Nucleotides: 196
Base pairs, nucleotide, nucleotide: 058077059076060075061074062073063072079092080091081090082089083088120149121148122147123146124145125144126143129140130139132137153188154187155186156185157184159181160180161179162178163177164176
Number, partner (000 for none) and nucleotide at each position: 001000c002000u003000a004000g005000a006000u007000u008000u009000c010000a011000g012000u013000u014000a015000c016000g017000g018000a019000g020000a021000g022000g023000u024000u025000a026000c027000u028000a029000a030000c031000u032000g033000g034000u035000a036000a037000a038000u039000a040000c041000g042000a043000a044000c045000a046000c047000a048000u049000a050000u051000c052000u053000g054000u055000u056000c057000u058077a059076a060075u061074c062073a063072g064000u065000g066000u067000g068000a069000a070000a071000a072063c073062u074061g075060g076059u077058u078000u079092u080091c081090g082089c083088c084000u085000u086000u087000u088083g089082g090081c091080g092079g093000a094000c095000u096000u097000u098000u099000u100000c101000a102000c103000u104000c105000g106000c107000a108000u109000u110000u111000u112000u113000g114000g115000g116000c117000a118000a119000u120149c121148g122147u123146c124145u125144g126143c127000g128000g129140c130139u131000c132137g133000c134000u135000u136000g137132c138000u139130a140129g141000c142000g143126g144125c145124g146123g147122a148121c149120g150000a151000g152000c153188g154187g155186u156185c157184u158000c159181c160180g161179g162178g163177g164176g165000c166000g167000u168000u169000c170000a171000c172000c173000u174000u175000u176164c177163c178162c179161c180160c181159g182000c183000g184157a185156g186155g187154c188153c189000a190000a191000c192000u193000a194000c195000a196000c
The family of this 196-nucleotide sequence from Phytophthora infestans is "U2 spliceosomal RNA". It scores 62 bits against the family's covariance model. Lineage of the source: Eukaryota > Stramenopiles > Oomycota > Peronosporales > Phytophthora. Rfam classes the family as a spliceosomal small nuclear RNA.